A member of the RNA family "Purine riboswitch aptamer" from Mesobacillus persicus, 99 nucleotides long. Riboswitches are metabolite binding domains within certain messenger RNAs that serve as precision sensors for their corresponding targets. The base pairs follow the family's consensus structure, which is taken from published work. The source organism's lineage runs through Bacteria, Bacillati, Bacillota, Bacillaceae and Mesobacillus. Rfam links the family to the GO term purine nucleobase biosynthetic process.
RNA sequence: ACUAAAUAUUUAAUUAAAUUUCGUAUAACUCCAAUAAUAUGGUUUGGAGGUCUCUACCAGGAACCAAAAAUCCUGAUUACGAAGAAGGUACAUGAUUUG
Numbered sequence: 001a002c003u004a005a006a007u008a009u010u011u012a013a014u015u016a017a018a019u020u021u022c023g024u025a026u027a028a029c030u031c032c033a034a035u036a037a038u039a040u041g042g043u044u045u046g047g048a049g050g051u052c053u054c055u056a057c058c059a060g061g062a063a064c065c066a067a068a069a070a071u072c073c074u075g076a077u078u079a080c081g082a083a084g085a086a087g088g089u090a091c092a093u094g095a096u097u098u099g
Base pairs, nucleotide, nucleotide: 019084020083021082022081023080024079025078029049030048031047032046033045034044058075059074060073061072062071